RNA sequence: GAUCCCGGAGGUCAACAUCCGACAGCGCAGAGCGCCCUCGGGUGCUGUUUUG
Numbered sequence: 001g002a003u004c005c006c007g008g009a010g011g012u013c014a015a016c017a018u019c020c021g022a023c024a025g026c027g028c029a030g031a032g033c034g035c036c037c038u039c040g041g042g043u044g045c046u047g048u049u050u051u052g
Stems, first nucleotide, its partner, number of pairs: 016044007025035004
RNA: ffh sRNA
Organism: Pseudochrobactrum saccharolyticum